[Rfam]
RNA sequence: GAGUUACGUUAAACGGCGAGGUUAAGUAUAACGGAGCCGAAGGGAAACCAAGUCUUAAUAGGGCGAUAUAGUCGUUUGGCGUAGACGCGAAACCUGGUGAUCUAAACCUGUCCAGGAUGAAGCUGUGGUAAGACACAGUGGAGGUCCUAACCCACCGCCGUUGAAAAGUUGGGGGAUGAGGUAGGUUUAGGGGUGAAAAGCCAAUCGAACCAGGAGAUAGCUCGUUCUCUCCGAAAUGCAUCUAGGUGCAGCCUUGAGUGUUCAAUUAUGGGGGUAGAGCACUGAAUGAUCUAGGGGGCAUAUUGCUUACUGAAAUCAAUCAAACUCCAAAUACCAUAAUUUAUAGCUCAGGAGUGAGACCAUGGGAGUUAACUUCCAUUGUCAAAAGGGAAACAACCCAGACCACCAGCUAAGGUCCCUAAUUAUAACUAAGUGGGAAAGGAGGUGGAGAUUCACAAACAACUAGGAGGUUGGCUUAGAAGCAGCCAUACCUUUAAAGAGUGCGUAAUAGCUCACUAGUCGAGAGUCUCUGCGCCGACAAUGUAACGGGGCUAAGUUAUAAACCGAAGCUGUGGAAUCCUUAUGGAUUGGUAGGAGAG
Dot-bracket structure: ....(((((((((((((..((((..((...))..))))...((....))..((((.....))))......)))))))))))))..((.(...((((((...((((((((((((.((((...((((((......))))))....))))...(((.(((.(........).))))))..).))))))))))).(((.....)))......))))))......).))..((((((....(((((....))))).((((((((..(.((((((((.....(((...(((.((((...(((((((...))))).))...)))).)))..)).).....))))))))...)))))))).)...(((.((((((......)))))).)))....(((......)))...((((.(((...(((......(((((((...........((..((((((((((.......(((((.(((..(((.........)))...)))(...)(...((......)).).)))))...)))))))))).))...................))))))))))...)))))))(((((....)))))....))))))